[Rfam]
RNA: msiK RNA
RNA sequence: CGCACCCACCCUCUACUCGGAUCGUCCGGCACGUUCCUGCCGGUGAAGGGAUUGAUUC
Numbered sequence: 001c002g003c004a005c006c007c008a009c010c011c012u013c014u015a016c017u018c019g020g021a022u023c024g025u026c027c028g029g030c031a032c033g034u035u036c037c038u039g040c041c042g043g044u045g046a047a048g049g050g051a052u053u054g055a056u057u058c
Base pairs, nucleotide, nucleotide: 009050010049011048012047014045015044026043027042028041029040030039031038